[Rfam]
RNA sequence: UUUUAUUCUCAGGGCGGGGUGCAAUUCCCCACCGGCGGUAAUCCUUUUCAGGUAGCCCGCGAGCGUCUGCCAAAAGCAGAGUCAGCAGAUACGGUUAGAUUCCGUAGCCGACGGUCAUAGUCCGGAUGGAAGAGAUUUUUU
Numbered sequence: 001u002u003u004u005a006u007u008c009u010c011a012g013g014g015c016g017g018g019g020u021g022c023a024a025u026u027c028c029c030c031a032c033c034g035g036c037g038g039u040a041a042u043c044c045u046u047u048u049c050a051g052g053u054a055g056c057c058c059g060c061g062a063g064c065g066u067c068u069g070c071c072a073a074a075a076g077c078a079g080a081g082u083c084a085g086c087a088g089a090u091a092c093g094g095u096u097a098g099a100u101u102c103c104g105u106a107g108c109c110g111a112c113g114g115u116c117a118u119a120g121u122c123c124g125g126a127u128g129g130a131a132g133a134g135a136u137u138u139u140u141u
Stems, first nucleotide, its partner, number of pairs: 005137001007135004017029003031121002033110002035060004055108002063086002090106005112124003